Shown here is a 126-nucleotide sequence from Aquabacterium sp., a member of the family "TPP riboswitch aptamer (THI element)". The source organism's lineage runs through Bacteria, Pseudomonadati, Burkholderiales, Sphaerotilaceae and Aquabacterium. About the family: Vitamin B(1) in its active form thiamin pyrophosphate (TPP) is an essential coenzyme that is synthesised by coupling of pyrimidine and thiazole moieties in bacteria.
RNA sequence: GCCACUGCUCCGGGGUGUGCCUCGCGAUGAAUCCUUGUUCAUCGUGUUGCGCUGAGAUGGUCAACGACCGAACCCGCUGAACUUGAUCCGGCUCAUACCGGCGAAAGAAGAGCUGUACCUGAUGGG
Numbered sequence: 001g002c003c004a005c006u007g008c009u010c011c012g013g014g015g016u017g018u019g020c021c022u023c024g025c026g027a028u029g030a031a032u033c034c035u036u037g038u039u040c041a042u043c044g045u046g047u048u049g050c051g052c053u054g055a056g057a058u059g060g061u062c063a064a065c066g067a068c069c070g071a072a073c074c075c076g077c078u079g080a081a082c083u084u085g086a087u088c089c090g091g092c093u094c095a096u097a098c099c100g101g102c103g104a105a106a107g108a109a110g111a112g113c114u115g116u117a118c119c120u121g122a123u124g125g126g
Base pairs, nucleotide, nucleotide: 007113008112009111010110011076012075013074014073016070017052018051019050020049059069060068061067062066082107083106084105088101089100090099091098